[Rfam]
RNA sequence: GGGAUGUGCUCAGAGCAGGGGGCCCUAAAGAAUGGCUCCUCUGUUUAUAACACACCCAACAAGAAUCUAGGGUGAUUGUGAUGAGGGGCACACAAAAUUCGUGGCCUUCUUAUGAACAAGUCCCCUACAUGU
Numbered sequence: 001g002g003g004a005u006g007u008g009c010u011c012a013g014a015g016c017a018g019g020g021g022g023c024c025c026u027a028a029a030g031a032a033u034g035g036c037u038c039c040u041c042u043g044u045u046u047a048u049a050a051c052a053c054a055c056c057c058a059a060c061a062a063g064a065a066u067c068u069a070g071g072g073u074g075a076u077u078g079u080g081a082u083g084a085g086g087g088g089c090a091c092a093c094a095a096a097a098u099u100c101g102u103g104g105c106c107u108u109c110u111u112a113u114g115a116a117c118a119a120g121u122c123c124c125c126u127a128c129a130u131g132u
Stems, first nucleotide, its partner, number of pairs: 002057002005054004013046009022036003070125003077118003082114002085107003089103003095099001
RNA: Small nucleolar RNA SNORA11
Organism: Otolemur garnettii